[Rfam]
RNA: mir-393 microRNA precursor family
RNA sequence: GAAGGAGACAUCCAAAGGGAUCGCAUUGAUCCUAGACCUGGGUCUUAAAUCUCUCUUAAUAUUUGGGAUCAUGCUAUCCCUUUGGAUUCUUCCUU
Dot-bracket structure: .(((((...((((((((((((.((((.(((((...(..........................)..))))))))).))))))))))))...)))))